The record is a 99-nucleotide RNA from Clostridium tyrobutyricum, which matches "Purine riboswitch aptamer" in Rfam. The family's consensus secondary structure is taken from published work. Taxonomically the source falls in Clostridium tyrobutyricum (Bacteria, Clostridia, Eubacteriales, Clostridium). A search with the family's covariance model found it, with a score of 61 bits. Rfam's curators write: Riboswitches are metabolite binding domains within certain messenger RNAs that serve as precision sensors for their corresponding targets.

RNA sequence: AUACUGUUAUUUUGUAUAGCUCGUAUACAUCCUGAAUGUGGCAGGAAAGUAUCUACCGGAGACCGUAAAUCCCCGACUAUGGGUGAAUUUUUAUGGUGU
Numbered sequence: 001a002u003a004c005u006g007u008u009a010u011u012u013u014g015u016a017u018a019g020c021u022c023g024u025a026u027a028c029a030u031c032c033u034g035a036a037u038g039u040g041g042c043a044g045g046a047a048a049g050u051a052u053c054u055a056c057c058g059g060a061g062a063c064c065g066u067a068a069a070u071c072c073c074c075g076a077c078u079a080u081g082g083g084u085g086a087a088u089u090u091u092u093a094u095g096g097u098g099u
Stems, first nucleotide, its partner, number of pairs: 019084007030046005057075003061071002